[Rfam]
RNA: Small nucleolar RNA SNORA79
RNA sequence: CGACGGCUGUUCCUCACGCCACCCUGAGACUGGCUGGUGUGAUUUUAUGCUGUCGAAGAGAAUCGUCAAAUUGUCUUCACCCACUGUAGCCGCACUGCCGGUUGCAGGCACCCUGUUACAAUGGACUUGCGGAUUUGUACAUAA
Numbered sequence: 001c002g003a004c005g006g007c008u009g010u011u012c013c014u015c016a017c018g019c020c021a022c023c024c025u026g027a028g029a030c031u032g033g034c035u036g037g038u039g040u041g042a043u044u045u046u047a048u049g050c051u052g053u054c055g056a057a058g059a060g061a062a063u064c065g066u067c068a069a070a071u072u073g074u075c076u077u078c079a080c081c082c083a084c085u086g087u088a089g090c091c092g093c094a095c096u097g098c099c100g101g102u103u104g105c106a107g108g109c110a111c112c113c114u115g116u117u118a119c120a121a122u123g124g125a126c127u128u129g130c131g132g133a134u135u136u137g138u139a140c141a142u143a144a
Base pairs, nucleotide, nucleotide: 001055002054003053004052005051006050007049014042015041016040017039018038020036021035023033068136069135070134071133072132081124082123083122085120086119087118088117089116090115096110097109098108099107